[Rfam]
RNA sequence: GGUUGGGCGGCAAUAAGCUGCUUUCAAGGCAUACGUGACUUUUAAGGGUGGAAAGUU
Numbered sequence: 001g002g003u004u005g006g007g008c009g010g011c012a013a014u015a016a017g018c019u020g021c022u023u024u025c026a027a028g029g030c031a032u033a034c035g036u037g038a039c040u041u042u043u044a045a046g047g048g049u050g051g052a053a054a055g056u057u
Stems, first nucleotide, its partner, number of pairs: 003027003006022006037057007